[Rfam]
RNA: mir-7 microRNA precursor family
Nucleotides: 088
Base pairs, nucleotide, nucleotide: 004085005084009081011079013077014076015075017073018072020070021069022068023067024066026065027064028063029062030061031060032059034058035057036056037055038054039053
Number, partner (000 for none) and nucleotide at each position: 001000g002000g003000g004085u005084c006000c007000a008000u009081a010000g011079c012000u013077g014076u015075g016000u017073g018072g019000a020070a021069g022068a023067c024066u025000a026065g027064u028063g029062a030061u031060u032059u033000u034058g035057u036056u037055g038054u039053u040000a041000u042000a043000u044000g045000u046000c047000a048000a049000a050000a051000u052000u053039g054038a055037c056036a057035a058034c059032a060031a061030g062029u063028c064027a065026u066024g067023g068022u069021c070020u071000a072018c073017c074000u075015c076014a077013u078000u079011g080000c081009u082000u083000u084005g085004a086000g087000a088000c